Description:
Rfam assigns this 222-nucleotide sequence from Paenibacillus yonginensis to the family "c-di-AMP riboswitch aptamer (ydaO/yuaA leader)". Rfam links the family to the GO terms regulation of gene expression and cyclic-di-AMP binding. The base pairs follow the family's consensus structure.
RNA sequence: GAACCAGUCUCGCUGAAUCUCCGAAUGGAGAACGGGGGAACCGAUGCAGAAGCUUGCAGGCCACUUGAAUUAAAUUGAGCCGGAGCGAAUGCAUUUGAUUUCUUUGUGUGAGUCUAUGGGGUGAAUUUGCGAUCAACCGCCAUGAGCGGAUGAAUCAAGAUAGGACGUCUCUCAUUCGUCCGAACCCGACAGCUAACCCCGUAAGCGUAUAUGAGAGAGGCA
Numbered sequence: 001g002a003a004c005c006a007g008u009c010u011c012g013c014u015g016a017a018u019c020u021c022c023g024a025a026u027g028g029a030g031a032a033c034g035g036g037g038g039a040a041c042c043g044a045u046g047c048a049g050a051a052g053c054u055u056g057c058a059g060g061c062c063a064c065u066u067g068a069a070u071u072a073a074a075u076u077g078a079g080c081c082g083g084a085g086c087g088a089a090u091g092c093a094u095u096u097g098a099u100u101u102c103u104u105u106g107u108g109u110g111a112g113u114c115u116a117u118g119g120g121g122u123g124a125a126u127u128u129g130c131g132a133u134c135a136a137c138c139g140c141c142a143u144g145a146g147c148g149g150a151u152g153a154a155u156c157a158a159g160a161u162a163g164g165a166c167g168u169c170u171c172u173c174a175u176u177c178g179u180c181c182g183a184a185c186c187c188g189a190c191a192g193c194u195a196a197c198c199c200c201g202u203a204a205g206c207g208u209a210u211a212u213g214a215g216a217g218a219g220g221c222a
Stems, first nucleotide, its partner, number of pairs: 011207004018031003032202006042118002119187003127160002163181004